[Rfam]
RNA sequence: UCACUGGUAACGGUGGGGUCUGAAGGAAGCGAUAGGAAGUAAACGGCACAUCAUGUGAUGUGAACCUGAUUCGGCUGCGUAAGUGGAUGAGCCUGCAAAAUAGGGCGAUGUCCAACAAGUAGUUUCCGAGCGGCUUCGGGAGAUUGGGCAGUCAAUAGUAUUUU
Numbered sequence: 001u002c003a004c005u006g007g008u009a010a011c012g013g014u015g016g017g018g019u020c021u022g023a024a025g026g027a028a029g030c031g032a033u034a035g036g037a038a039g040u041a042a043a044c045g046g047c048a049c050a051u052c053a054u055g056u057g058a059u060g061u062g063a064a065c066c067u068g069a070u071u072c073g074g075c076u077g078c079g080u081a082a083g084u085g086g087a088u089g090a091g092c093c094u095g096c097a098a099a100a101u102a103g104g105g106c107g108a109u110g111u112c113c114a115a116c117a118a119g120u121a122g123u124u125u126c127c128g129a130g131c132g133g134c135u136u137c138g139g140g141a142g143a144u145u146g147g148g149c150a151g152u153c154a155a156u157a158g159u160a161u162u163u164u
Base pairs, nucleotide, nucleotide: 001016002015003014004013005012006011029164031162032161033160037156044151046149047148049146050144051143052142054140065139066138068136069135074131075130076129079126081124082123084122085113086112087111088110091106092105093104094103
The family of this 164-nucleotide RNA sequence from bacterium M21 is "Group II catalytic intron D1-D4-3". Rfam links the family to the GO term Group II intron splicing. The base pairs follow the family's consensus structure.